[Rfam]
RNA: mir-5350 microRNA precursor family
RNA sequence: CAGGAGGUGGCGUUUCUAAGGUCUGCCAAAUUGUCUGAUCGCAAAUUUGGCACACCUAAGGAGCACUCGUUCCC
Numbered sequence: 001c002a003g004g005a006g007g008u009g010g011c012g013u014u015u016c017u018a019a020g021g022u023c024u025g026c027c028a029a030a031u032u033g034u035c036u037g038a039u040c041g042c043a044a045a046u047u048u049g050g051c052a053c054a055c056c057u058a059a060g061g062a063g064c065a066c067u068c069g070u071u072c073c074c
Stems, first nucleotide, its partner, number of pairs: 003073004009067002012064006019057004025051008